RNA sequence: CCGUUAAGUGAUGACAUGGCAGACGGAGUGUCACAUCAUCACAGCUAGUCACGGAAACCUCAUUGCCAUGUCACCCCCUUCGAUGGCAUGUCGGUGAUAAGACAUGAUGACAUGACACUCUGUCUGUCACAUUAUCACUUAAUGGAA
Numbered sequence: 001c002c003g004u005u006a007a008g009u010g011a012u013g014a015c016a017u018g019g020c021a022g023a024c025g026g027a028g029u030g031u032c033a034c035a036u037c038a039u040c041a042c043a044g045c046u047a048g049u050c051a052c053g054g055a056a057a058c059c060u061c062a063u064u065g066c067c068a069u070g071u072c073a074c075c076c077c078c079u080u081c082g083a084u085g086g087c088a089u090g091u092c093g094g095u096g097a098u099a100a101g102a103c104a105u106g107a108u109g110a111c112a113u114g115a116c117a118c119u120c121u122g123u124c125u126g127u128c129a130c131a132u133u134a135u136c137a138c139u140u141a142a143u144g145g146a147a
Stems, first nucleotide, its partner, number of pairs: 001145014017129017036110006045101002048098005054092002058090001070087004
This 147-nucleotide sequence from Glycine soja belongs to the Rfam family "MIR4371 microRNA precursor family". Its Rfam clan is "MIR4387 microRNA precursor clan". The base pairs follow the family's consensus structure, which was predicted with RNAalifold.